This 133-nucleotide sequence from Leptolyngbyaceae cyanobacterium LF-bin-113 belongs to the Rfam family "c-di-AMP riboswitch aptamer (ydaO/yuaA leader)". Pairs were carried over by alignment from the consensus structure.

RNA sequence: CAGCAUAAACUGGUGGAUCACUCUAUUCAAAGCGGAGGAACCAACCUUAUUUUGGGGCGAAUCUCAGAGAGUUUGAGAGAGACACCUUCCAGUCUUAGCCCGUCAGCUAACUCCGUCGGCAAUGGGAGGAGCG
Numbered sequence: 001c002a003g004c005a006u007a008a009a010c011u012g013g014u015g016g017a018u019c020a021c022u023c024u025a026u027u028c029a030a031a032g033c034g035g036a037g038g039a040a041c042c043a044a045c046c047u048u049a050u051u052u053u054g055g056g057g058c059g060a061a062u063c064u065c066a067g068a069g070a071g072u073u074u075g076a077g078a079g080a081g082a083c084a085c086c087u088u089c090c091a092g093u094c095u096u097a098g099c100c101c102g103u104c105a106g107c108u109a110a111c112u113c114c115g116u117c118g119g120c121a122a123u124g125g126g127a128g129g130a131g132c133g
Base pairs, nucleotide, nucleotide: 011121012120014118018031032116033115034114035113036112037111042054043053055101056100057099063077064076065075066074080095081094082093083092